A member of the RNA family "Mammalian CPEB3 ribozyme" from Alligator sinensis, 79 nucleotides long. Pairs were carried over by alignment from the consensus structure, which is taken from published work.
RNA sequence: AAAGGUUACAAGUUUGAGGUCAUAGCAGAAGUGCUCAUGGUACAACCUGUCAGAUUCCAACUAAUCUGCAAAUUUUGUU
Numbered sequence: 001a002a003a004g005g006u007u008a009c010a011a012g013u014u015u016g017a018g019g020u021c022a023u024a025g026c027a028g029a030a031g032u033g034c035u036c037a038u039g040g041u042a043c044a045a046c047c048u049g050u051c052a053g054a055u056u057c058c059a060a061c062u063a064a065u066c067u068g069c070a071a072a073u074u075u076u077g078u079u
Base pairs, nucleotide, nucleotide: 018047019046020045024079025078026077027076028075029074030073031043032042033041051068052067053066054065055064056063
About this RNA
The match comes from Rfam's covariance-model search (41 bits). Rfam's curators write: The mammalian CPEB3 ribozyme is a self cleaving RNA located in the second intron of the CPEB3 gene which belongs to a family of genes regulating messenger RNA polyadenylation.